[Rfam]
RNA sequence: GAAUGUCUUCAAGGCAGGGUGAAAUUCCCGAUCGGCGGUAAAGUCCGCGAGCAUGUAAAUGCUGAUUUGGUGAAAAUCCAAAACCGACAGUAUAGUCUGGAUUAAAGAAGGUGUAU
Numbered sequence: 001g002a003a004u005g006u007c008u009u010c011a012a013g014g015c016a017g018g019g020u021g022a023a024a025u026u027c028c029c030g031a032u033c034g035g036c037g038g039u040a041a042a043g044u045c046c047g048c049g050a051g052c053a054u055g056u057a058a059a060u061g062c063u064g065a066u067u068u069g070g071u072g073a074a075a076a077u078c079c080a081a082a083a084c085c086g087a088c089a090g091u092a093u094a095g096u097c098u099g100g101a102u103u104a105a106a107g108a109a110g111g112u113g114u115a116u
Stems, first nucleotide, its partner, number of pairs: 003114008017029003031096002033086002035048004043084002051062003066082005088099003
About this RNA:
The family of this 116-nucleotide RNA from Acetatifactor muris is "FMN riboswitch aptamer (RFN element)". The base pairs follow the family's consensus structure, which is taken from published work. Rfam 15.1 lists 6,230 matches to the family in 5,120 species. Taxonomically the source falls in Acetatifactor (Bacteria, Bacillota, Clostridia, Lachnospirales). The match comes from Rfam's covariance-model search (114 bits).